[Rfam]
RNA: S10-Clostridia ribosomal protein leader
RNA sequence: UGAUAGCGUAGAAGCGAAGGUUGCUAUGCAUGACAUAGGUUUUUCGUGGAGCGAAUGUCAAUUAACGAUAACUGGCGACAA
Numbered sequence: 001u002g003a004u005a006g007c008g009u010a011g012a013a014g015c016g017a018a019g020g021u022u023g024c025u026a027u028g029c030a031u032g033a034c035a036u037a038g039g040u041u042u043u044u045c046g047u048g049g050a051g052c053g054a055a056u057g058u059c060a061a062u063u064a065a066c067g068a069u070a071a072c073u074g075g076c077g078a079c080a081a
Base pairs, nucleotide, nucleotide: 014047015046016045017044018043019042020041024038025037026036027035028034056080057079058078059077063075065073